[Rfam]
RNA sequence: UCAUUAAAUUGGAUUAAGAGUCUGAACAAACUCAAAUAUUUUGUGUUGUCUAUCAGCUUCAUCUCUUGUAUCCUACGAGUUUGGAGUUAAAUAACAGCACGACAUUC
Numbered sequence: 001u002c003a004u005u006a007a008a009u010u011g012g013a014u015u016a017a018g019a020g021u022c023u024g025a026a027c028a029a030a031c032u033c034a035a036a037u038a039u040u041u042u043g044u045g046u047u048g049u050c051u052a053u054c055a056g057c058u059u060c061a062u063c064u065c066u067u068g069u070a071u072c073c074u075a076c077g078a079g080u081u082u083g084g085a086g087u088u089a090a091a092u093a094a095c096a097g098c099a100c101g102a103c104a105u106u107c
Stems, first nucleotide, its partner, number of pairs: 042101007055088006063079003
The family of this 107-nucleotide sequence from Lathyrus oleraceus is "Small nucleolar RNA snoR97". Taxonomically the source falls in Lathyrus (Eukaryota, Streptophyta, Spermatophyta, Hologalegina). A reference for the family is Marker et al. (2002), "Experimental RNomics: identification of 140 candidates for small non-messenger RNAs in the plant Arabidopsis thaliana", Curr Biol. Rfam classes the family as an H/ACA-box small nucleolar RNA. A search with the family's covariance model found it, with a score of 83 bits.